Notes
Rfam assigns this 74-nucleotide RNA sequence from Brevundimonas abyssalis to the family "tRNA". Pairs were carried over by alignment from the consensus structure, which is taken from published work.

[Rfam]
RNA sequence: GAGCCCCUAGCUCAGUUGGUUAGAGCAUCUGACUUUUAAUCAGAGGGUCCUCGGUUCGAACCCGAGGGGGCUCA
Numbered sequence: 001g002a003g004c005c006c007c008u009a010g011c012u013c014a015g016u017u018g019g020u021u022a023g024a025g026c027a028u029c030u031g032a033c034u035u036u037u038a039a040u041c042a043g044a045g046g047g048u049c050c051u052c053g054g055u056u057c058g059a060a061c062c063c064g065a066g067g068g069g070g071c072u073c074a
Stems, first nucleotide, its partner, number of pairs: 001073007010026004028044005050066005
It is annotated as a transfer RNA.